[Rfam]
RNA sequence: GAUAACUGGCUUGUGGCAGCCAAGCGUUCAUAGCGACGUUGCUUUUUGAUCCUUCGAUGUCGGCUCUUCCUAUCAUACCGAAGCAGAAUUCGGUAAGCGUUGGAUUGUUCACCCACUAGACCUUAUUGGUGGUAACAGCGGGCUGGCUCCUGCCAGUGGUACCUGCUAGUCGACGUACCGUACAAGUUGCACGUGGUACGCGGCAAGACAACCUGGUUCGGGGGAGGCUGAGGCUCAUGGCCCUGCUAAUCCCGAGUGCAGUCUCAGGACGCACGUAACGCGCGGAAAGGUGUCGGUCGCCCUCGGGGUGGCUUAAGGGACGUGCUAAACCCACGAGAAAUCGUGUCGGCCGCUGGAGCGCGUGCUUCGCAAAGGUGACCGAGGCCGCUUGAGGUCUGGAGGAAAUGCCAGGCCGAGGUCGGUACAUGUUGAAUAGGGAACGUGAGCUGGGUUUAGACCGUCGUGAGACAGGUUAGUU
Numbered sequence: 001g002a003u004a005a006c007u008g009g010c011u012u013g014u015g016g017c018a019g020c021c022a023a024g025c026g027u028u029c030a031u032a033g034c035g036a037c038g039u040u041g042c043u044u045u046u047u048g049a050u051c052c053u054u055c056g057a058u059g060u061c062g063g064c065u066c067u068u069c070c071u072a073u074c075a076u077a078c079c080g081a082a083g084c085a086g087a088a089u090u091c092g093g094u095a096a097g098c099g100u101u102g103g104a105u106u107g108u109u110c111a112c113c114c115a116c117u118a119g120a121c122c123u124u125a126u127u128g129g130u131g132g133u134a135a136c137a138g139c140g141g142g143c144u145g146g147c148u149c150c151u152g153c154c155a156g157u158g159g160u161a162c163c164u165g166c167u168a169g170u171c172g173a174c175g176u177a178c179c180g181u182a183c184a185a186g187u188u189g190c191a192c193g194u195g196g197u198a199c200g201c202g203g204c205a206a207g208a209c210a211a212c213c214u215g216g217u218u219c220g221g222g223g224g225a226g227g228c229u230g231a232g233g234c235u236c237a238u239g240g241c242c243c244u245g246c247u248a249a250u251c252c253c254g255a256g257u258g259c260a261g262u263c264u265c266a267g268g269a270c271g272c273a274c275g276u277a278a279c280g281c282g283c284g285g286a287a288a289g290g291u292g293u294c295g296g297u298c299g300c301c302c303u304c305g306g307g308g309u310g311g312c313u314u315a316a317g318g319g320a321c322g323u324g325c326u327a328a329a330c331c332c333a334c335g336a337g338a339a340a341u342c343g344u345g346u347c348g349g350c351c352g353c354u355g356g357a358g359c360g361c362g363u364g365c366u367u368c369g370c371a372a373a374g375g376u377g378a379c380c381g382a383g384g385c386c387g388c389u390u391g392a393g394g395u396c397u398g399g400a401g402g403a404a405a406u407g408c409c410a411g412g413c414c415g416a417g418g419u420c421g422g423u424a425c426a427u428g429u430u431g432a433a434u435a436g437g438g439a440a441c442g443u444g445a446g447c448u449g450g451g452u453u454u455a456g457a458c459c460g461u462c463g464u465g466a467g468a469c470a471g472g473u474u475a476g477u478u
Stems, first nucleotide, its partner, number of pairs: 009050001011048001013047001015043006024034002061450001062448004066442001067439005074099001077094006101428002105424001456474004460469003